[Rfam]
RNA sequence: GGCAUCACCGAACCCACGGCAGCAGCGGGAGAACCACGUUCUUCGGGCGGACUCGUGCCGCCCUCGGGGUUAAGCCGUCCCACGACGGCGGGCCAUCACUUCUCGGCCUCAUCCGACAGCUCAUCUCGCAGGCUCGAGAGGUCAGCAUG
Numbered sequence: 001g002g003c004a005u006c007a008c009c010g011a012a013c014c015c016a017c018g019g020c021a022g023c024a025g026c027g028g029g030a031g032a033a034c035c036a037c038g039u040u041c042u043u044c045g046g047g048c049g050g051a052c053u054c055g056u057g058c059c060g061c062c063c064u065c066g067g068g069g070u071u072a073a074g075c076c077g078u079c080c081c082a083c084g085a086c087g088g089c090g091g092g093c094c095a096u097c098a099c100u101u102c103u104c105g106g107c108c109u110c111a112u113c114c115g116a117c118a119g120c121u122c123a124u125c126u127c128g129c130a131g132g133c134u135c136g137a138g139a140g141g142u143c144a145g146c147a148u149g
Stems, first nucleotide, its partner, number of pairs: 008132002015022001025129006035066001067114003075088004091108004